[Rfam]
RNA: Small nucleolar RNA SNORA41
RNA sequence: CUCCUCAGCUAUUAAAGGGGAGGAUUACACUGUUCUCCUGGUGGCAGCUGUGGCAUUCCUCUGUGGGAAAGAAAUUGUUACACGAUCAAACACCUCUUUCUUAGCAAAAUGGAAAGUGGGCAUAUGUGUGACAAACAUGA
Numbered sequence: 001c002u003c004c005u006c007a008g009c010u011a012u013u014a015a016a017g018g019g020g021a022g023g024a025u026u027a028c029a030c031u032g033u034u035c036u037c038c039u040g041g042u043g044g045c046a047g048c049u050g051u052g053g054c055a056u057u058c059c060u061c062u063g064u065g066g067g068a069a070a071g072a073a074a075u076u077g078u079u080a081c082a083c084g085a086u087c088a089a090a091c092a093c094c095u096c097u098u099u100c101u102u103a104g105c106a107a108a109a110u111g112g113a114a115a116g117u118g119g120g121c122a123u124a125u126g127u128g129u130g131a132c133a134a135a136c137a138u139g140a
Stems, first nucleotide, its partner, number of pairs: 003066002006063001025053005030047003080129005093120003096116006